The record is a 72-nucleotide RNA sequence from Myotis davidii, which matches "Small nucleolar RNA SNORD73" in Rfam. It scores 66 bits against the family's covariance model. Rfam links the family to the GO terms nucleolus and RNA processing. Pairs were carried over by alignment from the consensus structure, which was predicted with PFOLD. By type it is a C/D-box small nucleolar RNA. The organism belongs to Myotis, within Eukaryota. For this family Rfam cites "A novel snoRNA (U73) is encoded within the introns of the human and mouse ribosomal protein S3a genes" (Rebane et al., Gene, 1998).
RNA sequence: AAUGAAUGAUGACAAAAUGUUUUGGUCUCAUGAUACAUACUGAUUAUACUAUUAAUGUUUAUUUUUGACAUU
Number, nucleotide and partner (000 for none) at each position: 001a072002a071003u070004g069005a000006a000007u000008g000009a000010u000011g000012a000013c000014a000015a000016a000017a000018u000019g000020u000021u000022u000023u000024g000025g000026u000027c000028u000029c000030a000031u000032g000033a000034u000035a000036c000037a000038u000039a000040c000041u000042g000043a000044u000045u000046a000047u000048a000049c000050u000051a000052u000053u000054a000055a000056u000057g000058u000059u000060u000061a000062u000063u000064u000065u000066u000067g000068a000069c004070a003071u002072u001